Background
Glycine riboswitch aptamer: a 78-nucleotide RNA from Lysinibacillus halotolerans.

RNA sequence: GGAGCAAUUUCUGGAGAGAUCGCAUCUUUGCGACGCCGAAGGGUUCACAAUCUCAGGCAAAAGGACAGAAAAAGUAAC
Numbered sequence: 001g002g003a004g005c006a007a008u009u010u011c012u013g014g015a016g017a018g019a020u021c022g023c024a025u026c027u028u029u030g031c032g033a034c035g036c037c038g039a040a041g042g043g044u045u046c047a048c049a050a051u052c053u054c055a056g057g058c059a060a061a062a063g064g065a066c067a068g069a070a071a072a073a074g075u076a077a078c
Stems, first nucleotide, its partner, number of pairs: 008071006020033004035058003038054002042052003
The base pairs follow the family's consensus structure.